[Rfam]
RNA sequence: UAGGCAUGCUGGAGCUCCGCAGCGGCGCCCGGGUCGUAUAGCCCGACACCGUAUACCCAUCGGAGCUUUU
Numbered sequence: 001u002a003g004g005c006a007u008g009c010u011g012g013a014g015c016u017c018c019g020c021a022g023c024g025g026c027g028c029c030c031g032g033g034u035c036g037u038a039u040a041g042c043c044c045g046a047c048a049c050c051g052u053a054u055a056c057c058c059a060u061c062g063g064a065g066c067u068u069u070u
Base pairs, nucleotide, nucleotide: 012068013067014066015065016064017063018062019061023051024050025049030045031044032043033042034040

Background:
Rfam assigns this 70-nucleotide RNA from Rhizobium gallicum to the family "ybhL leader". The organism belongs to Rhizobium gallicum bv. gallicum, within Bacteria. Rfam links the family to the GO term regulation of gene expression. From the family's description: This family is a putative regulatory RNA structure that is found upstream of an uncharacterized membrane protein in alpha-proteobacteria.